[Rfam]
RNA sequence: UCACAUCAUAUUUUCGUUCCUUGCUUCCGCAAGAUUGGUGACUGGUCUUACAGUCGGAGGCUGAUUAACCCGUAAGGAGCAGUAAUG
Numbered sequence: 001u002c003a004c005a006u007c008a009u010a011u012u013u014u015c016g017u018u019c020c021u022u023g024c025u026u027c028c029g030c031a032a033g034a035u036u037g038g039u040g041a042c043u044g045g046u047c048u049u050a051c052a053g054u055c056g057g058a059g060g061c062u063g064a065u066u067a068a069c070c071c072g073u074a075a076g077g078a079g080c081a082g083u084a085a086u087g
Stems, first nucleotide, its partner, number of pairs: 016080007023061006

The record is an 87-nucleotide RNA from Caviibacterium pharyngocola, which matches "RpsF leader" in Rfam. Conserved and widely distributed to many bacterial species RNA structure. It precedes operon containing rpsF, which encodes ribosomal protein S6. The motif also precedes operon containing rpsR, which encodes ribosomal protein S18. The RNA was shown to interact with S6:S18 protein dimer in vitro. It is annotated as a cis-regulatory leader.